This 78-nucleotide RNA from Solimonas aquatica belongs to the Rfam family "SAH (S-adenosyl-L-homocysteine) riboswitch aptamer". The family's consensus secondary structure is taken from published work. Its family is annotated with regulation of gene expression and S-adenosylhomocysteine metabolic process in the Gene Ontology. The organism belongs to Solimonas, within Bacteria.
RNA sequence: CCGGCCGAGGGGCGCUGCGACCCGUGAUGCGGGCCAGGCUCGGGCGGAUGGCUUUCGAUGCAACGGCGCCCGCUUCCC
Numbered sequence: 001c002c003g004g005c006c007g008a009g010g011g012g013c014g015c016u017g018c019g020a021c022c023c024g025u026g027a028u029g030c031g032g033g034c035c036a037g038g039c040u041c042g043g044g045c046g047g048a049u050g051g052c053u054u055u056c057g058a059u060g061c062a063a064c065g066g067c068g069c070c071c072g073c074u075u076c077c078c
Stems, first nucleotide, its partner, number of pairs: 002046002005043004021033005